[Rfam]
RNA sequence: GAAGUGACCUGCCCGGUAAAGUCUGGUCAACAGCCGAAAGCGAGUCUUGCAUGUUAGGAAGCAAUUUCUAGCGUGAAGCGUAGACAGUGAGUGCAAAAGCGGUGUGAUUGAGCCUCGAAAAGUUUAUCGCUGGAGCCUCCGUUUUUCAGAAGGCGGGGGCAGCAUAAUGGUACUGUAGUGACCUGGUACCGUUAUCCGGUCGGGGUCGGAGAGCA
Numbered sequence: 001g002a003a004g005u006g007a008c009c010u011g012c013c014c015g016g017u018a019a020a021g022u023c024u025g026g027u028c029a030a031c032a033g034c035c036g037a038a039a040g041c042g043a044g045u046c047u048u049g050c051a052u053g054u055u056a057g058g059a060a061g062c063a064a065u066u067u068c069u070a071g072c073g074u075g076a077a078g079c080g081u082a083g084a085c086a087g088u089g090a091g092u093g094c095a096a097a098a099g100c101g102g103u104g105u106g107a108u109u110g111a112g113c114c115u116c117g118a119a120a121a122g123u124u125u126a127u128c129g130c131u132g133g134a135g136c137c138u139c140c141g142u143u144u145u146u147c148a149g150a151a152g153g154c155g156g157g158g159g160c161a162g163c164a165u166a167a168u169g170g171u172a173c174u175g176u177a178g179u180g181a182c183c184u185g186g187u188a189c190c191g192u193u194a195u196c197c198g199g200u201c202g203g204g205g206u207c208g209g210a211g212a213g214c215a
Base pairs, nucleotide, nucleotide: 014036015035016034021031022030025183026182027181040088041087044085045084046083047082048080049079050075051074052073053072054071055070056069057068058067059066060065109209110207112206113205114204115203116202117201129200130199131198132197133196134195135160136159137158140155141154142153143152165194166193167192168191169190170189171188172187173186174185